A member of the RNA family "transfer-messenger RNA" from Zooshikella ganghwensis, 357 nucleotides long. Pairs were carried over by alignment from the consensus structure, which is taken from published work. The source organism's lineage runs through Bacteria, Pseudomonadota, Gammaproteobacteria, Oceanospirillales and Zooshikella.
RNA sequence: GGGGGCGAUCUGGAUUCGACGACGGUUACGAACCUUUCUGGUGCAUGUCGAGAUGGCAGCCAAUCUCGUAAAUCCAAAGCUGCAAAUUAAUAGUCGCAAACGACGAAAACUACGCUCUAGCUGCUUAAUCCCAGCUAGCAGUUCCACUAGCCAGCUUACGGGGUGGUGGUAACUGUCAUAUUUAGUAAGCUCGCUGAGAAGACUGUCUGCAUCAACUUGGCUAAACUUUUCGCAGGCUCGCCUUAUUCGCCCUGACCGUCGGGCCGACUAAGGUUAACCCAGUAGACGGAAGCUAAGCAUGUAGAGCCGAAAGCAGAGGACUGGCGGACGCGGGUUCAAAUCCCGCCGCCUCCACCA
Numbered sequence: 001g002g003g004g005g006c007g008a009u010c011u012g013g014a015u016u017c018g019a020c021g022a023c024g025g026u027u028a029c030g031a032a033c034c035u036u037u038c039u040g041g042u043g044c045a046u047g048u049c050g051a052g053a054u055g056g057c058a059g060c061c062a063a064u065c066u067c068g069u070a071a072a073u074c075c076a077a078a079g080c081u082g083c084a085a086a087u088u089a090a091u092a093g094u095c096g097c098a099a100a101c102g103a104c105g106a107a108a109a110c111u112a113c114g115c116u117c118u119a120g121c122u123g124c125u126u127a128a129u130c131c132c133a134g135c136u137a138g139c140a141g142u143u144c145c146a147c148u149a150g151c152c153a154g155c156u157u158a159c160g161g162g163g164u165g166g167u168g169g170u171a172a173c174u175g176u177c178a179u180a181u182u183u184a185g186u187a188a189g190c191u192c193g194c195u196g197a198g199a200a201g202a203c204u205g206u207c208u209g210c211a212u213c214a215a216c217u218u219g220g221c222u223a224a225a226c227u228u229u230u231c232g233c234a235g236g237c238u239c240g241c242c243u244u245a246u247u248c249g250c251c252c253u254g255a256c257c258g259u260c261g262g263g264c265c266g267a268c269u270a271a272g273g274u275u276a277a278c279c280c281a282g283u284a285g286a287c288g289g290a291a292g293c294u295a296a297g298c299a300u301g302u303a304g305a306g307c308c309g310a311a312a313g314c315a316g317a318g319g320a321c322u323g324g325c326g327g328a329c330g331c332g333g334g335u336u337c338a339a340a341u342c343c344c345g346c347c348g349c350c351u352c353c354a355c356c357a
Stems, first nucleotide, its partner, number of pairs: 001353007020326002023323005034313004039309004044301005049068005056083005117138007139175005145169001148166001149164001151162002154190006193221006205237005240274006247267003250263003254293001258287003330346005
Dot-bracket structure: (((((((............((.(((((......((((.((((.((((((((((..[[[[[...)))))..........]]]]].................................(((((((........)))))))[[[[[.[..[[.[[.((((((.]].].]..].]]]]].........))))))..((((((......[[[[[......))))))...........]]]]]..((((((.((((((.[...[[[))).))).))))))..........]]].....]...)))))....)))))))).....))))).))...(((((.......))))))))))))....
About the family: Bacterial tmRNA, also known as 10Sa RNA or SsrA, is named for its dual tRNA and mRNA-like properties.
The family's RNA type in Rfam is non-coding RNA gene.